[Rfam]
RNA sequence: AGCCUUCCUGCCACAGCUGGGGUAGCCUGGUAAUGACCUCUUCUGUCAAGGUUGGCUGAGAUCAACCUUCGCUCCCUUGAUAGGAAGCCAACGGCCUGCUCAUGGUCGGAUGGUGCCAUUUUGAGCGAUGAUAUCU
Dot-bracket structure: .(((..(((....(((..(.(((.((...))....))).)..)))...)))..)))............(((((.........((...(((.(((((.......)))))..)))..))......)))))........
RNA: Small nucleolar RNA snoR2/U65
Organism: Klebsormidium nitens